[Rfam]
RNA sequence: UGCACUGUAUGGUGUCUGCACCCAGCAGCCUGCUCCUGGUGGGAUGUUCAAAGAACAGUGGGACAGCACUUCAGCAUCUGGCAUCGUUGGUUUUCCUUCUGCCGUGGCUGGGAAACCUGGUAUUUGUGCUGAUACAGUC
Numbered sequence: 001u002g003c004a005c006u007g008u009a010u011g012g013u014g015u016c017u018g019c020a021c022c023c024a025g026c027a028g029c030c031u032g033c034u035c036c037u038g039g040u041g042g043g044a045u046g047u048u049c050a051a052a053g054a055a056c057a058g059u060g061g062g063a064c065a066g067c068a069c070u071u072c073a074g075c076a077u078c079u080g081g082c083a084u085c086g087u088u089g090g091u092u093u094u095c096c097u098u099c100u101g102c103c104g105u106g107g108c109u110g111g112g113a114a115a116c117c118u119g120g121u122a123u124u125u126g127u128g129c130u131g132a133u134a135c136a137g138u139c
Stems, first nucleotide, its partner, number of pairs: 003060005015054003018047003022043002024040001026038003064128002068124001070122001071120004080108001082106003
Dot-bracket structure: ..(((((.......((((((.(((.(((.......))).).)).)))....))).)))))...((..(.(((((.....(.(((...................))).)........)))).).)..))...........

This 139-nucleotide RNA sequence from Jacana jacana belongs to the Rfam family "Small nucleolar RNA SNORA8". Its Rfam clan is "SNORA8 clan". Rfam classes the family as an H/ACA-box small nucleolar RNA. Its family is annotated with nucleolus and RNA processing in the Gene Ontology. It scores 88 bits against the family's covariance model. Rfam describes the family as follows. ACA8 is a member of the H/ACA class of snoRNA that guide the sites of modification of uridines to pseudouridines.